A member of the RNA family "Archaeal small subunit ribosomal RNA" from Haloarcula argentinensis, 504 nucleotides of a longer RNA. Rfam links the family to the GO terms ribosome and structural constituent of ribosome. Rfam's curators put it in the seed alignment. A reference for the family is Cannone et al. (2002), "The comparative RNA web (CRW) site: an online database of comparative sequence and structure information for ribosomal, intron, and other RNAs", BMC Bioinformatics. Rfam 15.1 lists 709 matches to the family in 491 species. Pairs were carried over by alignment from the consensus structure, which is taken from published work.
[Rfam]
RNA sequence: CUUUCGGUUUGUCCUGCCGGAGGCCAUUGCUAUCGGAGUCCGAUUUAGCCAUGCUAGUCGCACGAGUUUAGACUCGUAGCAUAUAGCUCAGUAACACGUGGCCCAACUACCCUACAGACCGCGAUAACCUCGGGAAACUGAGGCCAAUAGCGGAUAUCACUCUCAUGCUGGAGUGCAGAGAGUGAGAAACGUUCCGGCGCUGUAGGAUGUGGCUGCGGCCGAUUAGGUAGAUGGUGGGGUAACGGCCCACCAUGCCGAUAAUCGGUACAGGUUGUGAGAGCAAGAGCCUGGAGACGGUAUCUGAGACAAGAUACCGGGCCCUACGGGGCGCAGCAGGCGCGAAACCUUUACACUGCACGACAGUGCGAUAGGGGGACUCCGAGUGUGAGGGCAUAUAGCCCUCGCUUUUCUGUACCGUAAGGUGGUUCAGGAACAAGGACUGGGCAAGACCGGUGCCAGCCGCCGCGGUAAUACCGGCAGUCCAAGUGAUGGCCGAUAUUAUUG
Numbered sequence: 001c002u003u004u005c006g007g008u009u010u011g012u013c014c015u016g017c018c019g020g021a022g023g024c025c026a027u028u029g030c031u032a033u034c035g036g037a038g039u040c041c042g043a044u045u046u047a048g049c050c051a052u053g054c055u056a057g058u059c060g061c062a063c064g065a066g067u068u069u070a071g072a073c074u075c076g077u078a079g080c081a082u083a084u085a086g087c088u089c090a091g092u093a094a095c096a097c098g099u100g101g102c103c104c105a106a107c108u109a110c111c112c113u114a115c116a117g118a119c120c121g122c123g124a125u126a127a128c129c130u131c132g133g134g135a136a137a138c139u140g141a142g143g144c145c146a147a148u149a150g151c152g153g154a155u156a157u158c159a160c161u162c163u164c165a166u167g168c169u170g171g172a173g174u175g176c177a178g179a180g181a182g183u184g185a186g187a188a189a190c191g192u193u194c195c196g197g198c199g200c201u202g203u204a205g206g207a208u209g210u211g212g213c214u215g216c217g218g219c220c221g222a223u224u225a226g227g228u229a230g231a232u233g234g235u236g237g238g239g240u241a242a243c244g245g246c247c248c249a250c251c252a253u254g255c256c257g258a259u260a261a262u263c264g265g266u267a268c269a270g271g272u273u274g275u276g277a278g279a280g281c282a283a284g285a286g287c288c289u290g291g292a293g294a295c296g297g298u299a300u301c302u303g304a305g306a307c308a309a310g311a312u313a314c315c316g317g318g319c320c321c322u323a324c325g326g327g328g329c330g331c332a333g334c335a336g337g338c339g340c341g342a343a344a345c346c347u348u349u350a351c352a353c354u355g356c357a358c359g360a361c362a363g364u365g366c367g368a369u370a371g372g373g374g375g376a377c378u379c380c381g382a383g384u385g386u387g388a389g390g391g392c393a394u395a396u397a398g399c400c401c402u403c404g405c406u407u408u409u410c411u412g413u414a415c416c417g418u419a420a421g422g423u424g425g426u427u428c429a430g431g432a433a434c435a436a437g438g439a440c441u442g443g444g445c446a447a448g449a450c451c452g453g454u455g456c457c458a459g460c461c462g463c464c465g466c467g468g469u470a471a472u473a474c475c476g477g478c479a480g481u482c483c484a485a486g487u488g489a490u491g492g493c494c495g496a497u498a499u500u501a502u503u504g
Stems, first nucleotide, its partner, number of pairs: 004020005022494010033382009042340001048338003052335003057080002062077006087293003097217007106210002111206007119153004128143006158184007167176002191198002219265003226256003231253008268290004272283004295316006318329004346372001348371003354367005385405008410430003414426003437483006450477004459466002